The family of this 75-nucleotide RNA sequence from Streptomyces zhaozhouensis is "ASpks TB sRNA". The base pairs follow the family's consensus structure, which is taken from published work. Taxonomically the source falls in Streptomyces (Bacteria, Actinomycetota, Actinomycetes, Streptomycetaceae).

RNA sequence: CUUCACGGAGCCGAGCCACAGCGGGUUCCCCACGCGCCGGCCCUGGCCGUAGGUGGCGAGCAGCGCCUGCGCCUC
Numbered sequence: 001c002u003u004c005a006c007g008g009a010g011c012c013g014a015g016c017c018a019c020a021g022c023g024g025g026u027u028c029c030c031c032a033c034g035c036g037c038c039g040g041c042c043c044u045g046g047c048c049g050u051a052g053g054u055g056g057c058g059a060g061c062a063g064c065g066c067c068u069g070c071g072c073c074u075c
Stems, first nucleotide, its partner, number of pairs: 014026001016024002031071001033069001038065002043060002047056003
Rfam classes the family as an antisense RNA.